[Rfam]
Source information: A member of the RNA family "STAXI RNA" from Xenorhabdus koppenhoeferi, 160 nucleotides long. A search with the family's covariance model found it, with a score of 95 bits. Rfam 15.1 lists 130 matches to the family in 68 species. Lineage of the source: Bacteria > Pseudomonadati > Enterobacterales > Morganellaceae > Xenorhabdus.

RNA sequence: UGUUGCUUUAUACAACCUAUUAAUGCUUCAGUAGUCUGAGAGAAGCGCUUUCGAGUGACUACGUAAUUAAUGUUUCAAUAGUCUGAGAGGAACGCCUUCGGGUGACUAUGUUUAUCUGCCAUACCUGAAAAGGCAGACAGCAAACACGCUGGGUAAUCCC
Numbered sequence: 001u002g003u004u005g006c007u008u009u010a011u012a013c014a015a016c017c018u019a020u021u022a023a024u025g026c027u028u029c030a031g032u033a034g035u036c037u038g039a040g041a042g043a044a045g046c047g048c049u050u051u052c053g054a055g056u057g058a059c060u061a062c063g064u065a066a067u068u069a070a071u072g073u074u075u076c077a078a079u080a081g082u083c084u085g086a087g088a089g090g091a092a093c094g095c096c097u098u099c100g101g102g103u104g105a106c107u108a109u110g111u112u113u114a115u116c117u118g119c120c121a122u123a124c125c126u127g128a129a130a131a132g133g134c135a136g137a138c139a140g141c142a143a144a145c146a147c148g149c150u151g152g153g154u155a156a157u158c159c160c
Stems, first nucleotide, its partner, number of pairs: 002016004025046005031062006047056003072093005078109006094103003115136001122155004139150003